The record is a 169-nucleotide RNA from Anaerococcus lactolyticus, which matches "Group II catalytic intron D1-D4-3" in Rfam.
RNA sequence: UAGAUGGUGACAUCUAGGAGAGAAGAAGUAAUAGCGAAAUCGUGGCUUGACGAACAGGAACAGAAUACAAGGCGUAACAGGUGGGCAAGCUAGCAGUAGAUAGCAAAGACCCAAAAGGUAACCGUAAGCCCAAGGUGUAAAUUCUGCAAGUAAACGAUGAAAGUAUUAG
Numbered sequence: 001u002a003g004a005u006g007g008u009g010a011c012a013u014c015u016a017g018g019a020g021a022g023a024a025g026a027a028g029u030a031a032u033a034g035c036g037a038a039a040u041c042g043u044g045g046c047u048u049g050a051c052g053a054a055c056a057g058g059a060a061c062a063g064a065a066u067a068c069a070a071g072g073c074g075u076a077a078c079a080g081g082u083g084g085g086c087a088a089g090c091u092a093g094c095a096g097u098a099g100a101u102a103g104c105a106a107a108g109a110c111c112c113a114a115a116a117g118g119u120a121a122c123c124g125u126a127a128g129c130c131c132a133a134g135g136u137g138u139a140a141a142u143u144c145u146g147c148a149a150g151u152a153a154a155c156g157a158u159g160a161a162a163g164u165a166u167u168a169g
Stems, first nucleotide, its partner, number of pairs: 001016006029168002034164002039158005045151005061146006072138003080130003083112003089104004
Group II introns are found in rRNA, tRNA and mRNA of organelles in fungi, plants and protists, and also in mRNA in bacteria.
The family has 406 seed sequences and 4,274 matches in Rfam 15.1.
Lineage of the source: Bacteria > Bacillota > Tissierellales > Peptoniphilaceae > Anaerococcus lactolyticus.